[Rfam]
RNA sequence: AAGCCCAGAGAGAGGCAGGGUCUGAUCCGCAGCCUCCUUGGCAGCUGUUCAUCAGCCGUUGCCUCUCUCUUUCUCUCUU
Numbered sequence: 001a002a003g004c005c006c007a008g009a010g011a012g013a014g015g016c017a018g019g020g021u022c023u024g025a026u027c028c029g030c031a032g033c034c035u036c037c038u039u040g041g042c043a044g045c046u047g048u049u050c051a052u053c054a055g056c057c058g059u060u061g062c063c064u065c066u067c068u069c070u071u072u073c074u075c076u077c078u079u
Stems, first nucleotide, its partner, number of pairs: 007070012020057001022055005030047004